The family of this 80-nucleotide sequence from Myotis davidii is "mir-9186 microRNA precursor family". Rfam links the family to the GO terms miRNA-mediated post-transcriptional gene silencing and RISC complex. The organism belongs to Myotis, within Eukaryota.
RNA sequence: UAGGAGGAGGUUGGCGGUAUGUGUUGUACUGAGGUAAUGGCUGCCCACAGUACCACCCAUGCCGCCUCUUUCCUCCUACA
Numbered sequence: 001u002a003g004g005a006g007g008a009g010g011u012u013g014g015c016g017g018u019a020u021g022u023g024u025u026g027u028a029c030u031g032a033g034g035u036a037a038u039g040g041c042u043g044c045c046c047a048c049a050g051u052a053c054c055a056c057c058c059a060u061g062c063c064g065c066c067u068c069u070u071u072c073c074u075c076c077u078a079c080a
Base pairs, nucleotide, nucleotide: 001078002077003076004075005074007072008071009070010069013066014065015064016063017062018061019060020059023056024055026053027052028051029050030049031048
Dot-bracket structure: (((((.((((..((((((((..((.((((((................)))))).))..))))))))..)))).)))))..